[Rfam]
RNA: Singlet oxygen resistance RNA X
Organism: Pontibaca salina
RNA sequence: GGCCCGCGCGUGUCCGGGUAAUUUGUGUAUCGGGUCGUUGGUUGCCGACACGCAAGUCCUUGUUGGAACUUGGCCGGGCCUUAUGGUCCGGUCUUUUUG
Numbered sequence: 001g002g003c004c005c006g007c008g009c010g011u012g013u014c015c016g017g018g019u020a021a022u023u024u025g026u027g028u029a030u031c032g033g034g035u036c037g038u039u040g041g042u043u044g045c046c047g048a049c050a051c052g053c054a055a056g057u058c059c060u061u062g063u064u065g066g067a068a069c070u071u072g073g074c075c076g077g078g079c080c081u082u083a084u085g086g087u088c089c090g091g092u093c094u095u096u097u098u099g
Base pairs, nucleotide, nucleotide: 008053009052010051011050012049013048014047072093073092074091075090076089077088078087079086